[Rfam]
RNA sequence: GGGGCGGGAGAGUUCACUCGGCACGCAUGCACGUGUAACCGCCAGUCCGUGCUUGCCUAGCGAACUCACCCGUCCC
Numbered sequence: 001g002g003g004g005c006g007g008g009a010g011a012g013u014u015c016a017c018u019c020g021g022c023a024c025g026c027a028u029g030c031a032c033g034u035g036u037a038a039c040c041g042c043c044a045g046u047c048c049g050u051g052c053u054u055g056c057c058u059a060g061c062g063a064a065c066u067c068a069c070c071c072g073u074c075c076c
Stems, first nucleotide, its partner, number of pairs: 001076003005072004010067006017060002020057004025052003031046002033043001
mir-H4 microRNA precursor family: a 76-nucleotide RNA from Simplexvirus humanalpha2. Its family is annotated with RISC complex and miRNA-mediated post-transcriptional gene silencing in the Gene Ontology. Rfam's curators put it in the seed alignment. Taxonomically the source falls in Simplexvirus humanalpha2 (Viruses, Duplodnaviria, Herviviricetes, Alphaherpesvirinae).